[Rfam]
RNA sequence: CCAAAGGCUCUUUUCAGAGCCACCCACCAAGUCUGAGAAAGUGGUU
Numbered sequence: 001c002c003a004a005a006g007g008c009u010c011u012u013u014u015c016a017g018a019g020c021c022a023c024c025c026a027c028c029a030a031g032u033c034u035g036a037g038a039a040a041g042u043g044g045u046u
Stems, first nucleotide, its partner, number of pairs: 006021006
RNA: Histone 3' UTR stem-loop